[Rfam]
RNA sequence: ACAAUGAUACUUCCGUCCAGUCACAGUCCGAGCGUUAGAAGCGUCGCAGGCAAUGAGGGCGGCUGCGGGAAAUCCCCGCGGUGGUGAGAUUCCAAUGG
Numbered sequence: 001a002c003a004a005u006g007a008u009a010c011u012u013c014c015g016u017c018c019a020g021u022c023a024c025a026g027u028c029c030g031a032g033c034g035u036u037a038g039a040a041g042c043g044u045c046g047c048a049g050g051c052a053a054u055g056a057g058g059g060c061g062g063c064u065g066c067g068g069g070a071a072a073u074c075c076c077c078g079c080g081g082u083g084g085u086g087a088g089a090u091u092c093c094a095a096u097g098g
Stems, first nucleotide, its partner, number of pairs: 012095001013062006063081003067077003082094003
Dot-bracket structure: ...........(((((((......................................))))))(((.(((.....))).)))(((.......))))...

Rfam assigns this 98-nucleotide sequence from Ruminococcus bovis to the family "pemK RNA".
The family's RNA type in Rfam is cis-regulatory element.
A search with the family's covariance model found it, with a score of 64 bits.
Lineage of the source: Bacteria > Bacillati > Bacillota > Eubacteriales > Ruminococcus.